Annotation:
Enterococcus sRNA 2410: a 171-nucleotide RNA sequence from Fundicoccus ignavus. Rfam describes the family as follows. Produced as 2 transcripts on Northern blot. Expressed in mid, late exponential and early stationary phases of growth. Expression remained uniform under daptomycin exposure.

Nucleotides: 171
Base pairs, nucleotide, nucleotide: 001079002078003077004076005075006074011068012067013066014065015064016063018046019045020044021043022042023041024040025039026038027037028036049062050061051060052059053058084146092130093129094128095127096126098124099123100122101121102120148170149169150168151167152166153165154164
Number, partner (000 for none) and nucleotide at each position: 001079a002078c003077g004076g005075c006074u007000a008000c009000u010000u011068u012067a013066g014065a015064u016063a017000g018046g019045u020044u021043u022042g023041u024040a025039u026038c027037u028036a029000u030000a031000a032000c033000u034000u035000u036028u037027a038026g039025a040024u041023a042022c043021a044020a045019a046018c047000a048000u049062u050061a051060a052059a053058c054000g055000a056000a057000a058053g059052u060051u061050u062049g063016u064015a065014u066013c067012u068011a069000u070000g071000a072000g073000g074006a075005g076004c077003u078002g079001u080000g081000a082000u083000u084146u085000u086000g087000a088000a089000u090000g091000c092130c093129c094128c095127g096126c097000a098124u099123a100122g101121a102120u103000a104000a105000u106000c107000u108000a109000u110000c111000c112000a113000g114000a115000u116000u117000a118000a119000a120102a121101u122100c123099u124098a125000a126096g127095c128094g129093g130092g131000u132000g133000u134000a135000a136000u137000a138000u139000g140000a141000a142000a143000c144000u145000a146084g147000c148170u149169u150168a151167a152166u153165u154164a155000g156000c157000c158000g159000a160000a161000g162000g163000u164154u165153a166152a167151u168150u169149a170148a171000u